[Rfam]
RNA sequence: CCUCCCAUCAGAGUGGUUGUGAUGUGGUAACUUGGACUCGUAUCACAGCCAGCUUUGAUGAGCGGAA
Numbered sequence: 001c002c003u004c005c006c007a008u009c010a011g012a013g014u015g016g017u018u019g020u021g022a023u024g025u026g027g028u029a030a031c032u033u034g035g036a037c038u039c040g041u042a043u044c045a046c047a048g049c050c051a052g053c054u055u056u057g058a059u060g061a062g063c064g065g066a067a
Stems, first nucleotide, its partner, number of pairs: 006060008014051012
Rfam assigns this 67-nucleotide sequence from Apis florea to the family "mir-2 microRNA precursor family". NCBI's taxonomy places the organism under Eukaryota, Protostomia, Altocrustacea, Dicondylia, Apis. Its family is annotated with miRNA-mediated post-transcriptional gene silencing and RISC complex in the Gene Ontology. The family has 56 seed sequences and 918 matches in Rfam 15.1. Pairs were carried over by alignment from the consensus structure, which was predicted with PFOLD.